[Rfam]
RNA sequence: GCCUAUGAUGACCCAAUCCAACUUGUUUAGGUGUUGUGGAGCCAAGCUCCUGAUAAAGGAGGAACCUACUUGGCGAAGCAAUAUUUCAUAUGACAGUAACGGAUUUGACUGAGGC
Numbered sequence: 001g002c003c004u005a006u007g008a009u010g011a012c013c014c015a016a017u018c019c020a021a022c023u024u025g026u027u028u029a030g031g032u033g034u035u036g037u038g039g040a041g042c043c044a045a046g047c048u049c050c051u052g053a054u055a056a057a058g059g060a061g062g063a064a065c066c067u068a069c070u071u072g073g074c075g076a077a078g079c080a081a082u083a084u085u086u087c088a089u090a091u092g093a094c095a096g097u098a099a100c101g102g103a104u105u106u107g108a109c110u111g112a113g114g115c
Base pairs, nucleotide, nucleotide: 001115002114003113048060049059050058051057
This 115-nucleotide sequence from Morus notabilis belongs to the Rfam family "Small nucleolar RNA Z278". Its family is annotated with nucleolus and RNA processing in the Gene Ontology. The literature on the family includes a 2003 paper in Nucleic Acids Res by Chen et al., "The high diversity of snoRNAs in plants: identification and comparative study of 120 snoRNA genes from Oryza sativa". The match comes from Rfam's covariance-model search (40 bits). It is annotated as a C/D-box small nucleolar RNA. The base pairs follow the family's consensus structure, which was predicted with PFOLD. NCBI's taxonomy places the organism under Eukaryota, Tracheophyta, eudicotyledons, Pentapetalae, Morus.